Shown here is a 101-nucleotide sequence from Melissococcus plutonius, a member of the family "TPP riboswitch aptamer (THI element)".
RNA sequence: ACCGUCACAAGGGGGAGCCUGAUGAGGCUGAGAAUGAGAAGACUCUAAACCCUAGAACCUGUUACGUUAGUACGUGCGUAGGAAUUGUGAUGGAGUAGAUA
Numbered sequence: 001a002c003c004g005u006c007a008c009a010a011g012g013g014g015g016a017g018c019c020u021g022a023u024g025a026g027g028c029u030g031a032g033a034a035u036g037a038g039a040a041g042a043c044u045c046u047a048a049a050c051c052c053u054a055g056a057a058c059c060u061g062u063u064a065c066g067u068u069a070g071u072a073c074g075u076g077c078g079u080a081g082g083a084a085u086u087g088u089g090a091u092g093g094a095g096u097a098g099a100u101a
Stems, first nucleotide, its partner, number of pairs: 006089005012052003017028004036045003058082004063076004

It scores 57 bits against the family's covariance model.